Overview: This 266-nucleotide sequence from Alkalicoccus daliensis belongs to the Rfam family "Bacterial large signal recognition particle RNA". Clan: SRP clan. Taxonomically the source falls in Alkalicoccus (Bacteria, Bacillati, Bacilli, Bacillaceae). It is annotated as a non-coding RNA gene. It scores 231 bits against the family's covariance model.

[Rfam]
RNA sequence: UCGUGCUAAGCGGGGAAUUAGCGGUGCCCUGUACUCGCAAUCCGCUACAGCGAGGCUGAACUCCUCUCAGAGGCCGCACGUUCUCAUGGUCUGCCCUAAGUAAGUGGUGUUGACAUUCGGGUUCCACGCAACGGAAUCUCGUGAAUCCUGUCAGGUCCGGAAGGAAGCAGCAGUAAGCGAGUCCUUCCGUGUGCCGUGGAGUUGCCUGAAUCGAGCAAACUGCUUAGGUAACGCUUGAGGGUGUCCGGUCGAAGAGAGGUGCACGG
Numbered sequence: 001u002c003g004u005g006c007u008a009a010g011c012g013g014g015g016a017a018u019u020a021g022c023g024g025u026g027c028c029c030u031g032u033a034c035u036c037g038c039a040a041u042c043c044g045c046u047a048c049a050g051c052g053a054g055g056c057u058g059a060a061c062u063c064c065u066c067u068c069a070g071a072g073g074c075c076g077c078a079c080g081u082u083c084u085c086a087u088g089g090u091c092u093g094c095c096c097u098a099a100g101u102a103a104g105u106g107g108u109g110u111u112g113a114c115a116u117u118c119g120g121g122u123u124c125c126a127c128g129c130a131a132c133g134g135a136a137u138c139u140c141g142u143g144a145a146u147c148c149u150g151u152c153a154g155g156u157c158c159g160g161a162a163g164g165a166a167g168c169a170g171c172a173g174u175a176a177g178c179g180a181g182u183c184c185u186u187c188c189g190u191g192u193g194c195c196g197u198g199g200a201g202u203u204g205c206c207u208g209a210a211u212c213g214a215g216c217a218a219a220c221u222g223c224u225u226a227g228g229u230a231a232c233g234c235u236u237g238a239g240g241g242u243g244u245c246c247g248g249u250c251g252a253a254g255a256g257a258g259g260u261g262c263a264c265g266g
Stems, first nucleotide, its partner, number of pairs: 001266006009057003012030004017025003034054005063259006072250005079243008088234001092230002096227006104220002107216002115211008123200006129191002132189005138181005148173004156165003
Source information:
The literature on the family includes a 2009 paper in RNA Biol by Rosenblad et al., "Kinship in the SRP RNA family".